RNA sequence: CCCGCCACUAUGCCUGUCUGUUAGCGUGACUGAGUAUAAUCCAGUGGAGGCUCAGAUUGACCCAGCUUUAGGAAACAGGGCUGCUCAAAUUAAUGGACAACUCUGUGCCGAAAAGUCUGAUACAUGA
Number, nucleotide and partner (000 for none) at each position: 001c000002c000003c000004g000005c047006c046007a045008c044009u043010a000011u000012g000013c000014c000015u000016g000017u000018c034019u033020g000021u000022u029023a000024g000025c000026g000027u000028g000029a022030c000031u000032g000033a019034g018035u000036a000037u000038a000039a000040u000041c000042c000043a009044g008045u007046g006047g005048a000049g000050g000051c000052u000053c000054a000055g000056a000057u000058u000059g000060a000061c000062c000063c119064a118065g117066c115067u114068u113069u112070a000071g109072g108073a000074a000075a000076c105077a104078g103079g102080g101081c000082u000083g000084c000085u096086c095087a000088a000089a000090u000091u000092a000093a000094u000095g086096g085097a000098c000099a000100a000101c080102u079103c078104u077105g076106u000107g000108c072109c071110g000111a000112a069113a068114a067115g066116u000117c065118u064119g063120a000121u000122a000123c000124a000125u000126g000127a000
A member of the RNA family "Small nucleolar RNA SNORA65" from Channa argus, 127 nucleotides long. About the family: U65 belongs to the H/ACA class of snoRNAs which are thought to guide the sites of modification of uridines to pseudouridines. Pairs were carried over by alignment from the consensus structure, which was predicted with RNAalifold. A search with the family's covariance model found it, with a score of 91 bits. The source organism's lineage runs through Eukaryota, Metazoa, Ctenosquamata, Acanthomorphata and Channa. It is annotated as an H/ACA-box small nucleolar RNA.